Small nucleolar RNA SNORA38: a 129-nucleotide sequence from Fukomys damarensis. The base pairs follow the family's consensus structure, which was predicted with RNAfold. Taxonomically the source falls in Fukomys (Eukaryota, Tetrapoda, Eutheria, Euarchontoglires). ACA38 is a member of the H/ACA class of snoRNA that guide the sites of modification of uridines to pseudouridines. The match comes from Rfam's covariance-model search (100 bits).
RNA sequence: CCCUCCUACAAGGGCGUGUCUCUUGUUUGCUGUCUUGGGACAGGUAAGAAUUGGAGGCAAAGAAAUGAGGAUUCGGAGACACCUGGGGCCAGCUUACUUCCCAGGCUCAAGAUUAACUGACCCAAGUAA
Numbered sequence: 001c002c003c004u005c006c007u008a009c010a011a012g013g014g015c016g017u018g019u020c021u022c023u024u025g026u027u028u029g030c031u032g033u034c035u036u037g038g039g040a041c042a043g044g045u046a047a048g049a050a051u052u053g054g055a056g057g058c059a060a061a062g063a064a065a066u067g068a069g070g071a072u073u074c075g076g077a078g079a080c081a082c083c084u085g086g087g088g089c090c091a092g093c094u095u096a097c098u099u100c101c102c103a104g105g106c107u108c109a110a111g112a113u114u115a116a117c118u119g120a121c122c123c124a125a126g127u128a129a
Stems, first nucleotide, its partner, number of pairs: 002057005015044001017042005069122002073119001091107005